[Rfam]
RNA sequence: UCCAUUGUGAGGUGGAAUCUGAAGGAAGAUGGCGGCAAAACUCUGCCCCGAGGAACACGAAUCUCAUCAGGCAUAGCCAAUAGGAUAAGACUGCCAAACAAGUCAAAGUCCAAAGAUUAUACGGAAAUUGGCUAUGUAAAUGAGGCGCGGACAUGGAGUGAAAGUGGGUUAA
Numbered sequence: 001u002c003c004a005u006u007g008u009g010a011g012g013u014g015g016a017a018u019c020u021g022a023a024g025g026a027a028g029a030u031g032g033c034g035g036c037a038a039a040a041c042u043c044u045g046c047c048c049c050g051a052g053g054a055a056c057a058c059g060a061a062u063c064u065c066a067u068c069a070g071g072c073a074u075a076g077c078c079a080a081u082a083g084g085a086u087a088a089g090a091c092u093g094c095c096a097a098a099c100a101a102g103u104c105a106a107a108g109u110c111c112a113a114a115g116a117u118u119a120u121a122c123g124g125a126a127a128u129u130g131g132c133u134a135u136g137u138a139a140a141u142g143a144g145g146c147g148c149g150g151a152c153a154u155g156g157a158g159u160g161a162a163a164g165u166g167g168g169u170u171a172a
Stems, first nucleotide, its partner, number of pairs: 001016006030171003035165002040159006046150002049147002062145005071137003075133007083111004089104004
The family of this 172-nucleotide RNA sequence from Flavobacterium sp. BFFFF2 is "Group II catalytic intron D1-D4-3". The source organism's lineage runs through Bacteria, Bacteroidota, Flavobacteriales, Flavobacteriaceae and Flavobacterium. The match comes from Rfam's covariance-model search (136 bits).